[Rfam]
Record summary
The record is an 84-nucleotide RNA from Carex littledalei, which matches "small nucleolar RNA snoR114" in Rfam. Gene Ontology terms of the family: nucleolus and RNA processing. The family's RNA type in Rfam is C/D-box small nucleolar RNA. For this family Rfam cites "Mining small RNA sequencing data: a new approach to identify small nucleolar RNAs in Arabidopsis" (Chen and Wu, Nucleic Acids Res, 2009). Taxonomically the source falls in Carex subgen. Euthyceras (Eukaryota, Embryophyta, Spermatophyta, Mesangiospermae). The family has 24 seed sequences and 1,645 matches in Rfam 15.1.
RNA sequence: GAACAAUGACGAUACGCAUGAGCGAUGACUUGGGGUCAAUCGCAACCGUCUGAUUAAUCAGAUGAUACCUGCAAUCCUGAGUUC
Number, nucleotide and partner (000 for none) at each position: 001g084002a083003a082004c081005a000006a000007u000008g000009a000010c000011g000012a000013u000014a000015c000016g000017c000018a000019u000020g000021a000022g000023c000024g000025a000026u000027g000028a000029c000030u000031u000032g000033g000034g000035g000036u000037c000038a000039a000040u000041c000042g000043c000044a000045a000046c000047c000048g000049u000050c000051u000052g000053a000054u000055u000056a000057a000058u000059c000060a000061g000062a000063u000064g000065a000066u000067a000068c000069c000070u000071g000072c000073a000074a000075u000076c000077c000078u000079g000080a000081g004082u003083u002084c001